Shown here is a 109-nucleotide sequence from Psychrobacillus sp. BL-248-WT-3, a member of the family "SAM riboswitch aptamer (S box leader)". Rfam links the family to the GO term regulation of gene expression. About the family: The SAM riboswitch is found upstream of a number of genes which code for proteins involved in methionine or cysteine biosynthesis in Gram-positive bacteria. The SAM riboswitch acts at the level of transcription termination control. The predicted structure consists of a complex stem-loop region followed by a single stem loop terminator region. An alternative and mutually exclusive form involves bases in the 3' segment of helix 1 with those in the 5' region of helix 5 to form a structure termed the anti-terminator form. The match comes from Rfam's covariance-model search (87 bits). A reference for the family is Grundy and Henkin (1998), "The S box regulon: a new global transcription termination control system for methionine and cysteine biosynthesis genes in gram-positive bacteria", Mol Microbiol.
[Rfam]
RNA sequence: UUCUUAUCUAGAGAAACCGAGGGAUCAGGCCCUAUGACGUUUCGGCAACAGGUUCAAAUCUUUGAAUACUGUGCCAACUCCUGCAAGCACACUGCUUGAAAGAUGAGAA
Number, nucleotide and partner (000 for none) at each position: 001u109002u108003c107004u106005u105006a104007u103008c102009u000010a000011g000012a000013g043014a042015a041016a040017c039018c000019g000020a000021g032022g031023g030024a000025u000026c083027a082028g081029g080030c023031c022032c021033u000034a000035u000036g000037a000038c000039g017040u016041u015042u014043c013044g075045g074046c073047a072048a000049c071050a070051g000052g067053u066054u065055c064056a000057a000058a000059u000060c000061u000062u000063u000064g055065a054066a053067u052068a000069c000070u050071g049072u047073g046074c045075c044076a000077a000078c000079u101080c029081c028082u027083g026084c098085a097086a096087g095088c094089a093090c000091a000092c000093u089094g088095c087096u086097u085098g084099a000100a000101a079102g008103a007104u006105g005106a004107g003108a002109a001